[Rfam]
RNA sequence: CUUUUAUCCAGAGUGGCUGAGGGACUGGCCCUAUGAAGCCCGGCAACCUGCCUGAAAAGGCGUGGUGCCAACACCAGCGCCCCGAUAAUUUCGGGGCGGAUGAUAAGAG
Numbered sequence: 001c002u003u004u005u006a007u008c009c010a011g012a013g014u015g016g017c018u019g020a021g022g023g024a025c026u027g028g029c030c031c032u033a034u035g036a037a038g039c040c041c042g043g044c045a046a047c048c049u050g051c052c053u054g055a056a057a058a059g060g061c062g063u064g065g066u067g068c069c070a071a072c073a074c075c076a077g078c079g080c081c082c083c084g085a086u087a088a089u090u091u092c093g094g095g096g097c098g099g100a101u102g103a104u105a106a107g108a109g
Stems, first nucleotide, its partner, number of pairs: 001109008013041001015040003021031003025077004042069004047065002049062004073101001078098008
Dot-bracket structure: ((((((((....(.(((...(((.[[[[)))......))))((((.((((((......)))).))))))...(]]]]((((((((.....))))))))..)))))))))

Record summary: The record is a 109-nucleotide RNA from Aminivibrio pyruvatiphilus, which matches "SAM riboswitch aptamer (S box leader)" in Rfam. For this family Rfam cites "SAM recognition and conformational switching mechanism in the Bacillus subtilis yitJ S box/SAM-I riboswitch" (Lu et al., J Mol Biol, 2010). NCBI's taxonomy places the organism under Bacteria, Thermotogati, Synergistota, Synergistales, Aminivibrio. Gene Ontology term of the family: regulation of gene expression. A search with the family's covariance model found it, with a score of 91 bits.